[Rfam]
RNA: c-di-AMP riboswitch aptamer (ydaO/yuaA leader)
RNA sequence: CUAAUCCUGCCGCCGUUCCGGAGCCCAGAACGAACCGCAUGGCAGGAGCGGGGGAACCACCUUUCUACGGGCGCCGAGAGGCGCCCUCGGGGUGAAGCCCUCGACGGACCACCAGGUCCGAGCGAAGGCCGGGCAGCACCUCAGCCCGAACCCGACAGCUCACCUCGCAGGCGCCGAGAGGUCAA
Numbered sequence: 001c002u003a004a005u006c007c008u009g010c011c012g013c014c015g016u017u018c019c020g021g022a023g024c025c026c027a028g029a030a031c032g033a034a035c036c037g038c039a040u041g042g043c044a045g046g047a048g049c050g051g052g053g054g055a056a057c058c059a060c061c062u063u064u065c066u067a068c069g070g071g072c073g074c075c076g077a078g079a080g081g082c083g084c085c086c087u088c089g090g091g092g093u094g095a096a097g098c099c100c101u102c103g104a105c106g107g108a109c110c111a112c113c114a115g116g117u118c119c120g121a122g123c124g125a126a127g128g129c130c131g132g133g134c135a136g137c138a139c140c141u142c143a144g145c146c147c148g149a150a151c152c153c154g155a156c157a158g159c160u161c162a163c164c165u166c167g168c169a170g171g172c173g174c175c176g177a178g179a180g181g182u183c184a185a
Base pairs, nucleotide, nucleotide: 001170005047006046007045008044009043010042011041012040048168049167050166051165052164053163058089090153091152092151098128099127101125102124103123131147132146133145134144